Rfam assigns this 79-nucleotide RNA from Helianthus annuus to the family "mir-156 microRNA precursor family". About the family: This family represents the plant microRNA (miRNA) precursor mir-156. NCBI's taxonomy places the organism under Eukaryota, Streptophytina, Euphyllophyta, Magnoliopsida, Helianthus. A search with the family's covariance model found it, with a score of 69 bits.
RNA sequence: GUGACAGAAGAGAGUGAGCACCCAUGGCCUUUCUAGCAUGCAUGCUUGAAGUGAUGUGUGCUCACCCUCUGUCUGUCAC
Dot-bracket structure: ((((((((.(((.((((((((.(((............................))).)))))))).)))..))))))))

Record summary: The family has 10 seed sequences and 1,401 matches in Rfam 15.1.